[Rfam]
RNA: Glycine riboswitch aptamer
RNA sequence: CCACUCUGAAGAGCGAGUCUCGAACUCCGCCGACGGUGAAAGCACUGAGUGCGGUGCGAAUCUCUCAGGCACAGAUACAGAGGGGGA
Numbered sequence: 001c002c003a004c005u006c007u008g009a010a011g012a013g014c015g016a017g018u019c020u021c022g023a024a025c026u027c028c029g030c031c032g033a034c035g036g037u038g039a040a041a042g043c044a045c046u047g048a049g050u051g052c053g054g055u056g057c058g059a060a061u062c063u064c065u066c067a068g069g070c071a072c073a074g075a076u077a078c079a080g081a082g083g084g085g086g087a
Stems, first nucleotide, its partner, number of pairs: 001085002004082005015027004029070003032066002036064001038062001042057004